[Rfam]
mir-239 microRNA precursor family: a 72-nucleotide sequence from Caenorhabditis brenneri.

Nucleotides: 072
Stems, first nucleotide, its partner, number of pairs: 003069010015057009025047003028043002
Number, partner (000 for none) and nucleotide at each position: 001000c002000a003069g004068u005067u006066u007065u008064u009063g010062u011061a012060c013000u014000u015057c016056a017055c018054a019053a020052g021051a022050g023049u024000a025047c026046u027045g028043g029042c030000g031000g032000u033000u034000c035000a036000g037000g038000u039000c040000c041000g042029g043028c044000u045027c046026a047025g048000a049023a050022c051021u052020u053019u054018u055017g056016u057015g058000g059000g060012g061011u062010g063009c064008a065007a066006g067005a068004a069003c070000a071000g072000c
Its family is annotated with RISC complex and miRNA-mediated post-transcriptional gene silencing in the Gene Ontology. The literature on the family includes a 2006 paper in Cell by Ruby et al., "Large-scale sequencing reveals 21U-RNAs and additional microRNAs and endogenous siRNAs in C. elegans". Lineage of the source: Eukaryota > Opisthokonta > Ecdysozoa > Rhabditomorpha > Caenorhabditis. The base pairs follow the family's consensus structure, which was predicted with RNAalifold.